Rfam assigns this 182-nucleotide RNA sequence from Clostridium sp. CAG:81 to the family "Lysine riboswitch aptamer". Taxonomically the source falls in Clostridium (Bacteria, Bacillati, Bacillota, Clostridiaceae). From the family's description: Riboswitches are metabolite binding domains within certain messenger RNAs that serve as precision sensors for their corresponding targets.
[Rfam]
RNA sequence: AUGAUAAGUAGAGGUUGCGCCUGACAUGAGUAGACCGGCAGAUAAUGGGAAAUGGCUGCCGGAGAAAAGGGGAUGGCGCCGAAGAGACAGGAAGUGAAUCCCUAAGGCUCCCGUUUCUGGGCAUGCGGCGAAGAACCGUAUGACUGUCAUCUUUAGAAAAAAGAUGGAGGGCUGCUUAAUCU
Numbered sequence: 001a002u003g004a005u006a007a008g009u010a011g012a013g014g015u016u017g018c019g020c021c022u023g024a025c026a027u028g029a030g031u032a033g034a035c036c037g038g039c040a041g042a043u044a045a046u047g048g049g050a051a052a053u054g055g056c057u058g059c060c061g062g063a064g065a066a067a068a069g070g071g072g073a074u075g076g077c078g079c080c081g082a083a084g085a086g087a088c089a090g091g092a093a094g095u096g097a098a099u100c101c102c103u104a105a106g107g108c109u110c111c112c113g114u115u116u117c118u119g120g121g122c123a124u125g126c127g128g129c130g131a132a133g134a135a136c137c138g139u140a141u142g143a144c145u146g147u148c149a150u151c152u153u154u155a156g157a158a159a160a161a162a163g164a165u166g167g168a169g170g171g172c173u174g175c176u177u178a179a180u181c182u
Base pairs, nucleotide, nucleotide: 006177007176008175009174010173011172017079018078019077020076021075025071035062036061037060038059039058040057083118084117085116086115087114088113090111091110092109119145120144122142123141124140125139126138127137128136147167148166149165150164151163152162153161